RNA sequence: CUUUGGGGGGAUUUUGGGGACUGUGUGGGGCACAGACACUCCAGGUCCCCUCUGUGCCACACCAUAUGGACCCCGGCCCCGGGCA
Numbered sequence: 001c002u003u004u005g006g007g008g009g010g011a012u013u014u015u016g017g018g019g020a021c022u023g024u025g026u027g028g029g030g031c032a033c034a035g036a037c038a039c040u041c042c043a044g045g046u047c048c049c050c051u052c053u054g055u056g057c058c059a060c061a062c063c064a065u066a067u068g069g070a071c072c073c074c075g076g077c078c079c080c081g082g083g084c085a
Base pairs, nucleotide, nucleotide: 004082006080008079009078010077017074018073019072024064025063026061027060029058030057031056032055033054034053035052
A member of the RNA family "NoRC associated RNA, pRNA" from Buceros rhinoceros, 85 nucleotides long. Lineage of the source: Eukaryota > Vertebrata > Tetrapoda > Archelosauria > Buceros rhinoceros. A search with the family's covariance model found it, with a score of 34 bits.